[Rfam]
RNA: DUF805b RNA
RNA sequence: AAGGGCGAAGCCGAAAACCCAAUAGAGUAGGCA
Numbered sequence: 001a002a003g004g005g006c007g008a009a010g011c012c013g014a015a016a017a018c019c020c021a022a023u024a025g026a027g028u029a030g031g032c033a
Base pairs, nucleotide, nucleotide: 003020004019005018010032011031012030